[Rfam]
RNA sequence: UGGCAACUGUGAUGAUGGAUUUGGUCUCUAUGUAAUUAAUGUAUUUUAUUACUAAUGAAGAUAAUAGUCCCUCUAAACUGAUGUUGCCU
Dot-bracket structure: .((((((...........................................................................)))))).
RNA: Small nucleolar RNA SNORD127
Organism: Orycteropus afer